Shown here is a 59-nucleotide RNA sequence from Helcobacillus massiliensis, a member of the family "msiK RNA".

RNA sequence: CGCAGGCUUCGCUUCACAACGGAUCGUCCGGCACGUACCUGCCGGUGAAGGAGAACAGC
Numbered sequence: 001c002g003c004a005g006g007c008u009u010c011g012c013u014u015c016a017c018a019a020c021g022g023a024u025c026g027u028c029c030g031g032c033a034c035g036u037a038c039c040u041g042c043c044g045g046u047g048a049a050g051g052a053g054a055a056c057a058g059c
Stems, first nucleotide, its partner, number of pairs: 010051001012050005028045006